Small nucleolar RNA SNORA65: a 116-nucleotide RNA sequence from Bison bison. Clan: SNORA65 clan. Rfam's curators write: U65 belongs to the H/ACA class of snoRNAs which are thought to guide the sites of modification of uridines to pseudouridines. For this family Rfam cites "RNomics: an experimental approach that identifies 201 candidates for novel, small, non-messenger RNAs in mouse" (Huttenhofer et al., EMBO J, 2001). The source organism's lineage runs through Eukaryota, Metazoa, Dipnotetrapodomorpha, Bovinae and Bison bison.
RNA sequence: UCUGCCACAGACUGGUAUAAAAGUACUUCUCAGUGGUGAGCUAAAAAUAACCCCAGCUUAGGAAACAGGGUUGUUCUUCAUGUGGAUGACUCUGUGCCGAAAGCAUGGGAACAGGC
Numbered sequence: 001u002c003u004g005c006c007a008c009a010g011a012c013u014g015g016u017a018u019a020a021a022a023g024u025a026c027u028u029c030u031c032a033g034u035g036g037u038g039a040g041c042u043a044a045a046a047a048u049a050a051c052c053c054c055a056g057c058u059u060a061g062g063a064a065a066c067a068g069g070g071u072u073g074u075u076c077u078u079c080a081u082g083u084g085g086a087u088g089a090c091u092c093u094g095u096g097c098c099g100a101a102a103g104c105a106u107g108g109g110a111a112c113a114g115g116c
Base pairs, nucleotide, nucleotide: 002033003032004031011024012023013022052109053108054107055106056104057103058102059101061098062097066094067093068092069091070090071089074086075085076084